[Rfam]
RNA sequence: GCCGAGCCCGGUAGCGUCGGCUUGUGACCCAAGCGGGGGCAAUAGGUUGGUGGGAUGGCGUGUCGCGCCUGAGUGGGUUGCGUGCGACCGCACAAUUGUUCGGCUUGCCCCUCCAAGUCAAGCAGUUGACCUAUGUGACAUGGGCGAAGGCCAGUGUCACAUGAGAUCCUAAAGUGGAGGACACCGCGUCAGGCUGGCUUCACAGAGCAACGACAACCGCCCUCUCUUGACGGUGGAAGGAUCACAGGCUGUCGUGCGCCGCACCCAUACGCCGACCGGGCCUACGCUGACCAAACCAUCCCCUUU
Numbered sequence: 001g002c003c004g005a006g007c008c009c010g011g012u013a014g015c016g017u018c019g020g021c022u023u024g025u026g027a028c029c030c031a032a033g034c035g036g037g038g039g040c041a042a043u044a045g046g047u048u049g050g051u052g053g054g055a056u057g058g059c060g061u062g063u064c065g066c067g068c069c070u071g072a073g074u075g076g077g078u079u080g081c082g083u084g085c086g087a088c089c090g091c092a093c094a095a096u097u098g099u100u101c102g103g104c105u106u107g108c109c110c111c112u113c114c115a116a117g118u119c120a121a122g123c124a125g126u127u128g129a130c131c132u133a134u135g136u137g138a139c140a141u142g143g144g145c146g147a148a149g150g151c152c153a154g155u156g157u158c159a160c161a162u163g164a165g166a167u168c169c170u171a172a173a174g175u176g177g178a179g180g181a182c183a184c185c186g187c188g189u190c191a192g193g194c195u196g197g198c199u200u201c202a203c204a205g206a207g208c209a210a211c212g213a214c215a216a217c218c219g220c221c222c223u224c225u226c227u228u229g230a231c232g233g234u235g236g237a238a239g240g241a242u243c244a245c246a247g248g249c250u251g252u253c254g255u256g257c258g259c260c261g262c263a264c265c266c267a268u269a270c271g272c273c274g275a276c277c278g279g280g281c282c283u284a285c286g287c288u289g290a291c292c293a294a295a296c297c298a299u300c301c302c303c304u305u306u
Stems, first nucleotide, its partner, number of pairs: 001040003004023005010017001028037003044305003049300005056293002059289002061286003065282001068280004076273003080266001082264005088258001090257003101251007109240002112237004117231006124225002128168002131165002133162009143152003169174001176221002179218002187212003194205003
Rfam assigns this 306-nucleotide sequence from Musa troglodytarum to the family "Plant signal recognition particle RNA". It scores 180 bits against the family's covariance model. For this family Rfam cites "Towards the structure of the mammalian signal recognition particle" (Wild et al., Curr Opin Struct Biol, 2002). Rfam classes the family as a non-coding RNA gene. Pairs were carried over by alignment from the consensus structure, which is taken from published work.